[Rfam]
RNA sequence: UUGGGGGAAGCCGAAAACCCACAAAAGAGUAGGUA
Numbered sequence: 001u002u003g004g005g006g007g008a009a010g011c012c013g014a015a016a017a018c019c020c021a022c023a024a025a026a027g028a029g030u031a032g033g034u035a
Base pairs, nucleotide, nucleotide: 002021003020004019005018010034011033012032
DUF805b RNA: a 35-nucleotide sequence from Aureispira anguillae.
Taxonomically the source falls in Aureispira (Bacteria, Pseudomonadati, Bacteroidota, Saprospiraceae).
The match comes from Rfam's covariance-model search (46 bits).
Pairs were carried over by alignment from the consensus structure, which is taken from published work.